[Rfam]
RNA sequence: UGUUAGGUUGGUGCAAAAGUAAUUGUGGUUUUUGCCAUUGAAAGUAAUGGCAAGAACACAAUUACUUUUGCACCAACCUGACA
Numbered sequence: 001u002g003u004u005a006g007g008u009u010g011g012u013g014c015a016a017a018a019g020u021a022a023u024u025g026u027g028g029u030u031u032u033u034g035c036c037a038u039u040g041a042a043a044g045u046a047a048u049g050g051c052a053a054g055a056a057c058a059c060a061a062u063u064a065c066u067u068u069u070g071c072a073c074c075a076a077c078c079u080g081a082c083a
Base pairs, nucleotide, nucleotide: 001083002082003081004080005079006078007077008076009075010074011073012072013071014070015069016068017067018066019065020064021063022062023061024060025059026058028057029056030055031054032053033052034051035050036049037048038047039046040045
RNA: mir-548 microRNA precursor family
Organism: Macaca mulatta